[Rfam]
RNA sequence: ACGGAAAGUAAGAUUUCCGUUCACUCCUCACACCACACCCCGCCUGAAGUUUCUUUAGGCGGUU
Numbered sequence: 001a002c003g004g005a006a007a008g009u010a011a012g013a014u015u016u017c018c019g020u021u022c023a024c025u026c027c028u029c030a031c032a033c034c035a036c037a038c039c040c041c042g043c044c045u046g047a048a049g050u051u052u053c054u055u056u057a058g059g060c061g062g063u064u
Base pairs, nucleotide, nucleotide: 001020002019003018004017005016006015007014041061042060043059044058045057046056047055